[Rfam]
RNA sequence: CAACUCUGGAAAGCAGCGCGUUCGCGCUCACCGACGGUGCAACGGUGCCCGACUCGUUCGGCCACCCGAAUCUCUCAGGUCCCAUCACAGAGCGGGGAGG
Number, nucleotide and partner (000 for none) at each position: 001c095002a000003a000004c092005u091006c090007u089008g088009g000010a000011a000012a000013g000014c000015a028016g027017c026018g025019c000020g000021u000022u000023c000024g000025c018026g017027c016028u015029c000030a080031c079032c078033g076034a075035c000036g000037g074038u000039g072040c000041a000042a000043c000044g067045g066046u000047g000048c000049c000050c000051g000052a000053c000054u000055c000056g000057u000058u000059c000060g000061g000062c000063c000064a000065c000066c045067c044068g000069a000070a000071u000072c039073u000074c037075u034076c033077a000078g032079g031080u030081c000082c000083c000084a000085u000086c000087a000088c008089a007090g006091a005092g004093c000094g000095g001096g000097g000098a000099g000100g000

This 100-nucleotide sequence from Leucobacter sp. cx-87 belongs to the Rfam family "Glycine riboswitch aptamer". The base pairs follow the family's consensus structure.